This 84-nucleotide sequence from Pontibacillus marinus belongs to the Rfam family "c-di-GMP-I riboswitch aptamer". A search with the family's covariance model found it, with a score of 60 bits. The base pairs follow the family's consensus structure, which is taken from published work. Rfam describes the family as follows. GEMM was predicted in a large-scale screen for bacterial structured RNA regulatory elements.
[Rfam]
RNA sequence: CAAUGGGAAUGGUACAAACGGAGAAAUCUGUUGUCACAAAGCUAUAGGGGCUAAGGGGACAACCUAUGCCUGCCAGCUGCCAUU
Dot-bracket structure: ...........((...((((((....))))))...))..((((...(((((....((.....))...)))..))))))......
Numbered sequence: 001c002a003a004u005g006g007g008a009a010u011g012g013u014a015c016a017a018a019c020g021g022a023g024a025a026a027u028c029u030g031u032u033g034u035c036a037c038a039a040a041g042c043u044a045u046a047g048g049g050g051c052u053a054a055g056g057g058g059a060c061a062a063c064c065u066a067u068g069c070c071u072g073c074c075a076g077c078u079g080c081c082a083u084u
Stems, first nucleotide, its partner, number of pairs: 012037002017032006040078004047074002049070003056064002